[Rfam]
RNA sequence: UUAUAGGCCGGUUUAGCUAUUGAACUGUUUUGUCUCUGUCAAAGAACAAUUUGUUCUGAGUUAGACAGGGACAAAACAGCUCAUUAGCUAAAACGACCUUUAAC
Numbered sequence: 001u002u003a004u005a006g007g008c009c010g011g012u013u014u015a016g017c018u019a020u021u022g023a024a025c026u027g028u029u030u031u032g033u034c035u036c037u038g039u040c041a042a043a044g045a046a047c048a049a050u051u052u053g054u055u056c057u058g059a060g061u062u063a064g065a066c067a068g069g070g071a072c073a074a075a076a077c078a079g080c081u082c083a084u085u086a087g088c089u090a091a092a093a094c095g096a097c098c099u100u101u102a103a104c
Stems, first nucleotide, its partner, number of pairs: 001103003005099002012092008021083003025079004029065004034060002045055004
Dot-bracket structure: (((.((.....((((((((.(((.((((((((.((.........((((...))))...)).))))..........)))).))).)))))))).....)).))).

Rfam assigns this 104-nucleotide RNA from Plutella xylostella to the family "mir-8517 microRNA precursor family". A search with the family's covariance model found it, with a score of 76 bits. The family's consensus secondary structure was predicted with RNAalifold. The source organism's lineage runs through Eukaryota, Mandibulata, Hexapoda, Aparaglossata and Plutella.